[Rfam]
RNA: SAM riboswitch aptamer (S box leader)
RNA sequence: CUCUUAUUUAGAGUGGUGGAGGGACUGGCCCGAUGAAACCCGGCAACCGUUAAACAAUGUUUGUUUAAAAUGGUGCCAAUUCCUGCAAAGCAAAAAGCUUUGAUAGAUGAGAG
Numbered sequence: 001c002u003c004u005u006a007u008u009u010a011g012a013g014u015g016g017u018g019g020a021g022g023g024a025c026u027g028g029c030c031c032g033a034u035g036a037a038a039c040c041c042g043g044c045a046a047c048c049g050u051u052a053a054a055c056a057a058u059g060u061u062u063g064u065u066u067a068a069a070a071u072g073g074u075g076c077c078a079a080u081u082c083c084u085g086c087a088a089a090g091c092a093a094a095a096a097g098c099u100u101u102g103a104u105a106g107a108u109g110a111g112a113g
Base pairs, nucleotide, nucleotide: 001113002112003111004110005109006108007107008106013041015040016039017038021031022030023029025085027083028082042077043076044075045074047073048072050068051067052066053065054064055063081105086102087101088100089099090098091097
Dot-bracket structure: ((((((((....(.(((...(((.[.[[)))......))))((((.((.((((((.......))))))...))))))...(]].]((((((.....))))))..)))))))))